[Rfam]
RNA sequence: UUGUGUUAAAUCAAUGUGUGAGUCCUAUAUUUUAGAAAAUAAAACUCAUAUAAAGUGGUGGAAUAUACAUUGAUUUCAUUCAA
Numbered sequence: 001u002u003g004u005g006u007u008a009a010a011u012c013a014a015u016g017u018g019u020g021a022g023u024c025c026u027a028u029a030u031u032u033u034a035g036a037a038a039a040u041a042a043a044a045c046u047c048a049u050a051u052a053a054a055g056u057g058g059u060g061g062a063a064u065a066u067a068c069a070u071u072g073a074u075u076u077c078a079u080u081c082a083a
Stems, first nucleotide, its partner, number of pairs: 001083003005079002008076011025061003028057007
RNA: MIR5269 microRNA precursor family
Organism: Medicago truncatula